A member of the RNA family "Small nucleolar RNA SNORD67" from Gadus morhua, 114 nucleotides long. snoRNA HBII-166 belongs to the C/D family of snoRNAs. Lineage of the source: Eukaryota > Opisthokonta > Craniata > Actinopteri > Gadus. A search with the family's covariance model found it, with a score of 44 bits.
[Rfam]
RNA sequence: CAUCAUGAUGAGUUGCGCUGUCGGCGGGGUUGCAUUUGACUGCAGUGGCGGUCGCGAGCCCCUCCCCGAUUCUCCAUGGUGACACACGAUGUGCACGGGGGCCAUCUGAAAAGC
Numbered sequence: 001c002a003u004c005a006u007g008a009u010g011a012g013u014u015g016c017g018c019u020g021u022c023g024g025c026g027g028g029g030u031u032g033c034a035u036u037u038g039a040c041u042g043c044a045g046u047g048g049c050g051g052u053c054g055c056g057a058g059c060c061c062c063u064c065c066c067c068g069a070u071u072c073u074c075c076a077u078g079g080u081g082a083c084a085c086a087c088g089a090u091g092u093g094c095a096c097g098g099g100g101g102c103c104a105u106c107u108g109a110a111a112a113g114c
Stems, first nucleotide, its partner, number of pairs: 001113001003111001021069004026064004032059002039052005